[Rfam]
RNA sequence: CCGGGUGCAGAACUGGCCCGGUAGCGAGAGCGUCGGCGCAUGUCCCGGCGCUUCUCAUGAUCAAAUUGCUUUUUGGAGGAUUUGGCUAUGAGGA
Numbered sequence: 001c002c003g004g005g006u007g008c009a010g011a012a013c014u015g016g017c018c019c020g021g022u023a024g025c026g027a028g029a030g031c032g033u034c035g036g037c038g039c040a041u042g043u044c045c046c047g048g049c050g051c052u053u054c055u056c057a058u059g060a061u062c063a064a065a066u067u068g069c070u071u072u073u074u075g076g077a078g079g080a081u082u083u084g085g086c087u088a089u090g091a092g093g094a
Stems, first nucleotide, its partner, number of pairs: 001021006008015002028053009054092006061085007069078003
RNA: Repression of heat shock gene expression (ROSE) element